[Rfam]
RNA sequence: UUCUUAUCUAGAGAAGCAGAGGGACUGGCCCUAUGAAGCUUCAGCAACCACCGGAUUAUUUCUGGAAAGGUGCUAAUUCCAGCAAGUUGAAUUCAACUUGAACGAUAAGAA
Number, nucleotide and partner (000 for none) at each position: 001u111002u110003c109004u108005u107006a106007u105008c104009u000010a000011g000012a000013g042014a041015a040016g039017c038018a000019g000020a000021g031022g030023g029024a000025c082026u081027g080028g079029c023030c022031c021032u000033a000034u000035g000036a000037a000038g017039c016040u015041u014042c013043a074044g073045c072046a071047a000048c070049c069050a000051c065052c064053g063054g000055a000056u000057u000058a000059u000060u000061u000062c000063u053064g052065g051066a000067a000068a000069g049070g048071u046072g045073c044074u043075a000076a000077u000078u000079c028080c027081a026082g025083c100084a099085a098086g097087u096088u095089g000090a000091a000092u000093u000094c000095a088096a087097c086098u085099u084100g083101a000102a000103c000104g008105a007106u006107a005108a004109g003110a002111a001
RNA: SAM riboswitch aptamer (S box leader)